[Rfam]
RNA sequence: GGUCUGAUGCCAUGUCGACGGUAGCCACAGAGCAUUGACCGGCGAUGCUAUCUUUGGACCAAAAUCAAUUUCUUGUUUCGCAUAUUUGAUAGGAACCUGUGGAUCGAUUUGUAUGUCGUUCAUCCACGGAGCUGAUUUUUGCGAUUACAUUU
Numbered sequence: 001g002g003u004c005u006g007a008u009g010c011c012a013u014g015u016c017g018a019c020g021g022u023a024g025c026c027a028c029a030g031a032g033c034a035u036u037g038a039c040c041g042g043c044g045a046u047g048c049u050a051u052c053u054u055u056g057g058a059c060c061a062a063a064a065u066c067a068a069u070u071u072c073u074u075g076u077u078u079c080g081c082a083u084a085u086u087u088g089a090u091a092g093g094a095a096c097c098u099g100u101g102g103a104u105c106g107a108u109u110u111g112u113a114u115g116u117c118g119u120u121c122a123u124c125c126a127c128g129g130a131g132c133u134g135a136u137u138u139u140u141g142c143g144a145u146u147a148c149a150u151u152u
Stems, first nucleotide, its partner, number of pairs: 002059006009051001013047005020040003024033002078144005092133002097129003101125004
The family of this 152-nucleotide sequence from Rhododendron simsii is "Small nucleolar RNA snoR2/U65".
Rfam 15.1 lists 908 matches to the family in 230 species.
The family's consensus secondary structure was predicted with WAR.
Rfam links the family to the GO terms RNA processing and nucleolus.
By type it is an H/ACA-box small nucleolar RNA.
Taxonomically the source falls in Rhododendron (Eukaryota, Streptophyta, Mesangiospermae, Gunneridae).